[Rfam]
About this RNA
Rfam assigns this 264-nucleotide RNA from bacterium HR26 to the family "Bacterial large signal recognition particle RNA". A reference for the family is Rosenblad et al. (2003), "SRPDB: Signal Recognition Particle Database", Nucleic Acids Res. Rfam describes the family as follows. The signal recognition particle (SRP) is a universally conserved ribonucleoprotein involved in the co-translational targeting of proteins to membranes. By type it is a non-coding RNA gene.

RNA sequence: CCGUGCUAGGCGGGGAGAUAGCGGUGCCCUGUACCCGCAAUCCGCUGUAGCGGGGCUGAACUCCCUCCCGAGGUCCGACCCUGUGGGACUGCCCGGGUCACGUGGUGUGGAUGGUUGGGUCCCACGCGGCGAGGAGCCGUGAACCCGGUCAGGUCCGGAAGGAAGCAGCCGUAAGCGGUGACCCUCGGGUGACGUGGGGAAGCCUGGCCGGAGCCAACGAGCUCGGCGCAAGCCGGAGGGCCGCGAUCGACGGAGGGUGCACGG
Numbered sequence: 001c002c003g004u005g006c007u008a009g010g011c012g013g014g015g016a017g018a019u020a021g022c023g024g025u026g027c028c029c030u031g032u033a034c035c036c037g038c039a040a041u042c043c044g045c046u047g048u049a050g051c052g053g054g055g056c057u058g059a060a061c062u063c064c065c066u067c068c069c070g071a072g073g074u075c076c077g078a079c080c081c082u083g084u085g086g087g088a089c090u091g092c093c094c095g096g097g098u099c100a101c102g103u104g105g106u107g108u109g110g111a112u113g114g115u116u117g118g119g120u121c122c123c124a125c126g127c128g129g130c131g132a133g134g135a136g137c138c139g140u141g142a143a144c145c146c147g148g149u150c151a152g153g154u155c156c157g158g159a160a161g162g163a164a165g166c167a168g169c170c171g172u173a174a175g176c177g178g179u180g181a182c183c184c185u186c187g188g189g190u191g192a193c194g195u196g197g198g199g200a201a202g203c204c205u206g207g208c209c210g211g212a213g214c215c216a217a218c219g220a221g222c223u224c225g226g227c228g229c230a231a232g233c234c235g236g237a238g239g240g241c242c243g244c245g246a247u248c249g250a251c252g253g254a255g256g257g258u259g260c261a262c263g264g
Stems, first nucleotide, its partner, number of pairs: 001264006009057003012030004017025001019023001034054005063257006072248004077242001079240004084235003090228002094225005102218002104215003112210009121198006127189001130187005136179005146171004154163003

The family's consensus secondary structure is taken from published work.